Rfam assigns this 399-nucleotide sequence from Salsuginibacillus halophilus to the family "Bacterial RNase P class B".
Ribonuclease P (RNase P) is a ubiquitous endoribonuclease, found in archaea, bacteria and eukarya as well as chloroplasts and mitochondria.
A reference for the family is Brown (1999), "The Ribonuclease P Database", Nucleic Acids Res.
The organism belongs to Salsuginibacillus, within Bacteria.
[Rfam]
RNA sequence: GUGUUCAAGCAAUCGCUGUUCACAAUACGUGUUCAGAGGAAAGUCCAUGCUCGCACGAUCUGAGAUGAUCGUAGUGUUCGUGCCUGACGAAAUCAUAAGUCAGGGCCGGUUGGCAUUCAGCUGACCGGACGGCAGAGAAAAGCUCUACGUAAGCUUGAUGCUUAUAGGAGCUGAUGAUCUUGAAAGUGCCACAGUGACGGAGCCUGUUCGGAAACGGACAGGGUGGAACGCGGUAAACCCCUCGAGCGAGAAACCCAAAAAUAUGGUAGGGGCGCCUUUCCGAAGGAAUUCAACGGAGGAAAGGGCAGUUGAUAUGCUCAACUGCAGAUAGAUGAUUGCUUCCGGCGUGCGAGGUGAAUAACCGUUUAAGCACAAAGGAACAGAACAUGGCUUAUCGAA
Dot-bracket structure: ...(((((((((((.(((..(.........)..)))....[[[.[[[[[(((((((((((......)))))).....(((.(((((((..........))))))((((((((((.....))))))))).)((.(((.....((((...((((((.....))))))..))))......))).....(((((............((((((((....)))))))).........)))..))))).))))))))...(((............)))...(((((((................)))))))((((((((.....))))))))........))))))).((...((((...................))))...)).......]]]]]]]].).)))